[Rfam]
RNA sequence: GGAGCGGUGAUGAUUACAACAUGCCAUCUGAGCACGCGUGCUGAGACCCAGAGGCUGUUUCUGAGUUG
Numbered sequence: 001g002g003a004g005c006g007g008u009g010a011u012g013a014u015u016a017c018a019a020c021a022u023g024c025c026a027u028c029u030g031a032g033c034a035c036g037c038g039u040g041c042u043g044a045g046a047c048c049c050a051g052a053g054g055c056u057g058u059u060u061c062u063g064a065g066u067u068g
Stems, first nucleotide, its partner, number of pairs: 005068004
The record is a 68-nucleotide sequence from Trichechus manatus, which matches "Small nucleolar RNA SNORD95" in Rfam. On this family, see Vitali et al., Nucleic Acids Res 2003: "Identification of 13 novel human modification guide RNAs". Its family is annotated with RNA processing and nucleolus in the Gene Ontology.